[Rfam]
Nucleotides: 306
Stems, first nucleotide, its partner, number of pairs: 001306004007300003012260002015257004021073005036053004040048001082290005091236004101115005116130005131232007150218005261278004
Number, partner (000 for none) and nucleotide at each position: 001306g002305c003304a004303g005000u006000g007300u008299c009298a010000a011000u012260c013259u014000a015257g016256c017255a018254g019000u020000u021073g022072g023071g024070g025069u026000u027000u028000a029000c030000a031000a032000g033000c034000a035000a036053g037052g038051c039050a040048c041000a042000a043000a044000a045000a046000a047000u048040g049000u050039u051038g052037c053036c054000a055000u056000c057000a058000a059000u060000u061000a062000a063000a064000a065000a066000a067000a068000a069025a070024c071023c072022u073021c074000g075000g076000g077000a078000a079000g080000g081000u082290c083289u084288g085287a086286g087000a088000c089000a090000a091236g092235a093234u094233c095000g096000a097000u098000u099000a100000a101115c102114a103113c104112u105111c106000u107000a108000g109000c110000a111105g112104g113103g114102u115101g116130a117129u118128g119127u120126c121000a122000u123000a124000a125000u126120g127119g128118c129117a130116u131232g132231c133230a134229c135228g136227a137226g138000a139000a140000c141000c142000a143000g144000a145000a146000a147000u148000a149000g150218u151217u152216u153215g154214a155000u156000u157000a158000u159000u160000g161000c162000c163000u164000u165000u166000g167000u168000g169000c170000c171000g172000g173000g174000g175000a176000u177000a178000c179000u180000c181000a182000u183000u184000u185000u186000c187000u188000u189000u190000u191000a192000g193000a194000a195000a196000g197000a198000g199000u200000g201000g202000a203000g204000g205000u206000g207000g208000c209000g210000a211000u212000c213000g214154u215153c216152a217151a218150a219000u220000u221000g222000g223000a224000a225000a226137c227136u228135c229134g230133u231132g232131u233094g234093g235092u236091c237000c238000g239000c240000u241000a242000u243000a244000u245000a246000a247000g248000u249000u250000u251000a252000a253000u254018c255017u256016g257015c258000a259013a260012g261278c262277c263276g264275g265000u266000a267000c268000u269000u270000u271000a272000a273000g274000u275264c276263c277262g278261g279000a280000a281000c282000u283000c284000a285000a286086u287085u288084c289083a290082g291000a292000c293000u294000a295000a296000u297000c298009u299008g300007a301000u302000g303004c304003u305002g306001c
Nuclear RNase P: a 306-nucleotide sequence from Cotesia typhae. The literature on the family includes a 2005 paper in RNA by Marquez et al., "Structural implications of novel diversity in eucaryal RNase P RNA". Taxonomically the source falls in Cotesia (Eukaryota, Panarthropoda, Allotriocarida, Endopterygota). A search with the family's covariance model found it, with a score of 133 bits. Ribonuclease P (RNase P) is a ubiquitous endoribonuclease, found in archaea, bacteria and eukarya as well as chloroplasts and mitochondria.